[Rfam]
RNA: RT-12 RNA
Organism: Oxalobacteraceae bacterium AB_14
RNA sequence: UAACAAACGCGGCCAGGCCCCUAACAGGGUGAAAUGGUAAUAAGAUUACUCGGUUUAUCCGGAAGGGCGGUUCGUAGAUUGCCGCCAUCUUCGCUCUUCCGGUUUGCUAAG
Number, nucleotide and partner (000 for none) at each position: 001u000002a000003a000004c000005a000006a000007a000008c000009g085010c084011g083012g082013c081014c000015a000016g000017g030018c029019c028020c027021c000022u000023a000024a000025c000026a000027g020028g019029g018030u017031g000032a000033a000034a000035u000036g000037g049038u048039a047040a046041u000042a000043a000044g000045a000046u040047u039048a038049c037050u111051c000052g108053g107054u106055u000056u000057a000058u000059c102060c101061g100062g099063a098064a097065g096066g095067g094068c093069g000070g000071u000072u000073c000074g000075u000076a090077g089078a088079u087080u000081g013082c012083c011084g010085c009086c000087a079088u078089c077090u076091u000092c000093g068094c067095u066096c065097u064098u063099c062100c061101g060102g059103u000104u000105u000106g054107c053108u052109a000110a000111g050